[Rfam]
RNA sequence: UCUGGUGUGAGGAAUCACCGGAAAACGCUUAGGGUCGAAACAAGGACAGACACCUAGGCGUUUUUCUUU
Numbered sequence: 001u002c003u004g005g006u007g008u009g010a011g012g013a014a015u016c017a018c019c020g021g022a023a024a025a026c027g028c029u030u031a032g033g034g035u036c037g038a039a040a041c042a043a044g045g046a047c048a049g050a051c052a053c054c055u056a057g058g059c060g061u062u063u064u065u066c067u068u069u
Base pairs, nucleotide, nucleotide: 022064023063024062025061026060029057030056031055032054033053034051035050036049
Rfam assigns this 69-nucleotide sequence from [Limnothrix rosea] IAM M-220 to the family "Cyano-1 RNA".
Rfam classes the family as a small RNA.
The base pairs follow the family's consensus structure, which is taken from published work.
A search with the family's covariance model found it, with a score of 49 bits.